[Rfam]
RNA: small nucleolar RNA snoR126
Organism: Digitaria exilis
RNA sequence: UGGCUAUGAUGACAGGAAUAUACACUUCUCGAUGCUGAGACUUGAUUUCUUCGAAGACCAAAAUUUGAUGAGCUUUGUGCGUGUCUGAGCCAA
Numbered sequence: 001u002g003g004c005u006a007u008g009a010u011g012a013c014a015g016g017a018a019u020a021u022a023c024a025c026u027u028c029u030c031g032a033u034g035c036u037g038a039g040a041c042u043u044g045a046u047u048u049c050u051u052c053g054a055a056g057a058c059c060a061a062a063a064u065u066u067g068a069u070g071a072g073c074u075u076u077g078u079g080c081g082u083g084u085c086u087g088a089g090c091c092a093a
Stems, first nucleotide, its partner, number of pairs: 001092004